[Rfam]
Nucleotides: 073
Stems, first nucleotide, its partner, number of pairs: 009065003015062002017057005024050005030044006
Number, partner (000 for none) and nucleotide at each position: 001000a002000u003000a004000u005000a006000u007000a008000a009065u010064g011063u012000u013000u014000g015062a016061a017057a018056u019055u020054u021053u022000g023000c024050a025049c026048a027047c028046a029000c030044u031043u032042a033041c034040a035039a036000u037000a038000a039035u040034u041033g042032u043031a044030a045000a046028u047027g048026u049025g050024u051000u052000g053021a054020a055019a056018a057017u058000c059000g060000u061016u062015u063011g064010c065009a066000c067000a068000a069000c070000u071000c072000u073000g